The family of this 414-nucleotide RNA from bacterium 0.1xD8-71 is "Bacterial RNase P class A". About the family: Ribonuclease P (RNase P) is a ubiquitous endoribonuclease, found in archaea, bacteria and eukarya as well as chloroplasts and mitochondria. Pairs were carried over by alignment from the consensus structure, which is taken from published work. It scores 309 bits against the family's covariance model.

[Rfam]
RNA sequence: UAAGUAGAACAAAUGAUCGCGGCUGUACAGACGAAAGGGUACAGGUGAGGAAAGUCCGGGCUUCACAGGGCAGGAUGCCGGAUAACGUCCGGUGGAGGCGACUCCAAGGCCAGUGCAACAGAAAAUAAACAGCCCCGCAGUUUUGCGGAAGCAAUACUGUGGCGAAGCCGCUUUGCGGCUUCAGGACUUCCGUGCAAACAGAAGUCCAUGGUUAUGGUGGAAUGGCAGUGUAAGAGACUACCGCUGUCCCGGUAACGGGACAGGCUGUGUAAACCCCAUCCGAAGCAAGACCAAAUAGAAAGCAACAGGCCGGCCCGGUCUGCUUUCAGGUAGGUCGCUGGAGGUCUUCGGUAACGAGGAUCCUAGAUAGAUGAUCAUUCACGACAUAACCCGGCUUAUCGUUCUGCUUAUUUU
Numbered sequence: 001u002a003a004g005u006a007g008a009a010c011a012a013a014u015g016a017u018c019g020c021g022g023c024u025g026u027a028c029a030g031a032c033g034a035a036a037g038g039g040u041a042c043a044g045g046u047g048a049g050g051a052a053a054g055u056c057c058g059g060g061c062u063u064c065a066c067a068g069g070g071c072a073g074g075a076u077g078c079c080g081g082a083u084a085a086c087g088u089c090c091g092g093u094g095g096a097g098g099c100g101a102c103u104c105c106a107a108g109g110c111c112a113g114u115g116c117a118a119c120a121g122a123a124a125a126u127a128a129a130c131a132g133c134c135c136c137g138c139a140g141u142u143u144u145g146c147g148g149a150a151g152c153a154a155u156a157c158u159g160u161g162g163c164g165a166a167g168c169c170g171c172u173u174u175g176c177g178g179c180u181u182c183a184g185g186a187c188u189u190c191c192g193u194g195c196a197a198a199c200a201g202a203a204g205u206c207c208a209u210g211g212u213u214a215u216g217g218u219g220g221a222a223u224g225g226c227a228g229u230g231u232a233a234g235a236g237a238c239u240a241c242c243g244c245u246g247u248c249c250c251g252g253u254a255a256c257g258g259g260a261c262a263g264g265c266u267g268u269g270u271a272a273a274c275c276c277c278a279u280c281c282g283a284a285g286c287a288a289g290a291c292c293a294a295a296u297a298g299a300a301a302g303c304a305a306c307a308g309g310c311c312g313g314c315c316c317g318g319u320c321u322g323c324u325u326u327c328a329g330g331u332a333g334g335u336c337g338c339u340g341g342a343g344g345u346c347u348u349c350g351g352u353a354a355c356g357a358g359g360a361u362c363c364u365a366g367a368u369a370g371a372u373g374a375u376c377a378u379u380c381a382c383g384a385c386a387u388a389a390c391c392c393g394g395c396u397u398a399u400c401g402u403u404c405u406g407c408u409u410a411u412u413u414u
Stems, first nucleotide, its partner, number of pairs: 001410010011399001012379007020047002023044006052397003056394005061285004068316004073281005078092005093107001094105004108276002113274002115270003130216002132212003137207001139205001224242002227239003243265001244263008289336004298327006307321005343362008